[Rfam]
RNA sequence: UUGAAAAAUUUGAAGACUUCAACUUGCAUAGUUGGAGGAUUUGAAGACUUCAACUUGCAAACUUGAAGACUUCAAAUUGUAUAU
Numbered sequence: 001u002u003g004a005a006a007a008a009u010u011u012g013a014a015g016a017c018u019u020c021a022a023c024u025u026g027c028a029u030a031g032u033u034g035g036a037g038g039a040u041u042u043g044a045a046g047a048c049u050u051c052a053a054c055u056u057g058c059a060a061a062c063u064u065g066a067a068g069a070c071u072u073c074a075a076a077u078u079g080u081a082u083a084u
Base pairs, nucleotide, nucleotide: 002083003082005080009076010075011074012073013072014071017068018067019066020065021064025059026058027057028056032053033052034051035050036049037048
Source information
The record is an 84-nucleotide RNA from Solanum commersonii, which matches "MIR8024 microRNA precursor family" in Rfam. The organism belongs to Solanum, within Eukaryota. It scores 72 bits against the family's covariance model. The base pairs follow the family's consensus structure, which was predicted with RNAalifold.